[Rfam]
Shown here is a 57-nucleotide RNA sequence from Nicotiana attenuata, a member of the family "Plastid-ndhJ 3UTR RNA". The literature on the family includes a 2023 paper in Plant Commun by Richter et al., "Retrograde signaling in plants: A critical review focusing on the GUN pathway and beyond". The match comes from Rfam's covariance-model search (48 bits). NCBI's taxonomy places the organism under Eukaryota, Viridiplantae, Gunneridae, Nicotianeae, Nicotiana. From the family's description: Plastid ndhJ is a non-coding RNA (ncRNA) present in plastids.

RNA sequence: UCAUGAACUUUGUACUGCGCACAUUACUUAGACGGGUUCUAGAAAUUCAUUCUCCUU
Number, nucleotide and partner (000 for none) at each position: 001u000002c000003a000004u000005g000006a000007a000008c000009u000010u000011u000012g000013u000014a000015c000016u000017g000018c000019g037020c036021a000022c034023a000024u032025u031026a000027c000028u000029u000030a000031g025032a024033c000034g022035g000036g020037u019038u000039c000040u000041a000042g000043a000044a000045a000046u000047u000048c000049a000050u000051u000052c000053u000054c000055c000056u000057u000